[Rfam]
RNA sequence: GGCCUCCCUCUGUGGGGUGAUUGGUCACGGGGCCCCCAGAUCAAUUGCCUUGCAGAGGGAGGCC
Numbered sequence: 001g002g003c004c005u006c007c008c009u010c011u012g013u014g015g016g017g018u019g020a021u022u023g024g025u026c027a028c029g030g031g032g033c034c035c036c037c038a039g040a041u042c043a044a045u046u047g048c049c050u051u052g053c054a055g056a057g058g059g060a061g062g063c064c
Stems, first nucleotide, its partner, number of pairs: 001064026029036002

A member of the RNA family "mir-9242 microRNA precursor family" from Myotis lucifugus, 64 nucleotides long. The base pairs follow the family's consensus structure, which was predicted with RNAalifold.